[Rfam]
RNA sequence: UCCGGCUGAGGUAGUAGUUUGUGCUGUUGGUCAGGUUGUGACAUGGCCCGCUGUGGAGAUAACUGCGCAAACUACUGCCUUGCUGGC
Numbered sequence: 001u002c003c004g005g006c007u008g009a010g011g012u013a014g015u016a017g018u019u020u021g022u023g024c025u026g027u028u029g030g031u032c033a034g035g036u037u038g039u040g041a042c043a044u045g046g047c048c049c050g051c052u053g054u055g056g057a058g059a060u061a062a063c064u065g066c067g068c069a070a071a072c073u074a075c076u077g078c079c080u081u082g083c084u085g086g087c
Stems, first nucleotide, its partner, number of pairs: 002086005008081017026063002034049002051058002
The record is an 87-nucleotide sequence from Salvelinus namaycush, which matches "let-7 microRNA precursor family" in Rfam.
The family is grouped with related families in Rfam's "let-7 microRNA precursor clan".
NCBI's taxonomy places the organism under Eukaryota, Metazoa, Gnathostomata, Neopterygii, Salvelinus.
From the family's description: This family represents the microRNAs (miRNA) let-7 and mir-98. let-7 was identified from a study of developmental timing in C. elegans, and was later shown to be part of a much larger class of non-coding RNAs termed miRNAs.
On this family, see Rougvie, Nat Rev Genet 2001: "Control of developmental timing in animals".